[Rfam]
The family of this 81-nucleotide RNA from Blautia obeum is "ZMP/ZTP riboswitch aptamer (pfl RNA motif)".
It is one of the family's seed sequences.
Taxonomically the source falls in Blautia obeum (Bacteria, Bacillati, Bacillota, Clostridia).

RNA sequence: CAACGACUGCAUGACUGGCGGAAGUAGGAUGAACUACAGGGAGUGCAGUAAGUGAACGUGCCGACCGCCUGGGCAGCCUGG
Dot-bracket structure: .....(((((((..(([[[[[..((((......)))).))..))))))).........((((..]]]]]..))))......
Numbered sequence: 001c002a003a004c005g006a007c008u009g010c011a012u013g014a015c016u017g018g019c020g021g022a023a024g025u026a027g028g029a030u031g032a033a034c035u036a037c038a039g040g041g042a043g044u045g046c047a048g049u050a051a052g053u054g055a056a057c058g059u060g061c062c063g064a065c066c067g068c069c070u071g072g073g074c075a076g077c078c079u080g081g
Stems, first nucleotide, its partner, number of pairs: 006049007015040002017069005024037004059075004